[Rfam]
RNA sequence: AGAUUUGCAUAUAGUGUAGUAUGCAACUAAAAAUAAAGAAAUACACGUCAAGA
Numbered sequence: 001a002g003a004u005u006u007g008c009a010u011a012u013a014g015u016g017u018a019g020u021a022u023g024c025a026a027c028u029a030a031a032a033a034u035a036a037a038g039a040a041a042u043a044c045a046c047g048u049c050a051a052g053a
Stems, first nucleotide, its partner, number of pairs: 006025006014046004
The family of this 53-nucleotide sequence is "6A RNA". The sequence is in the family's curated seed alignment.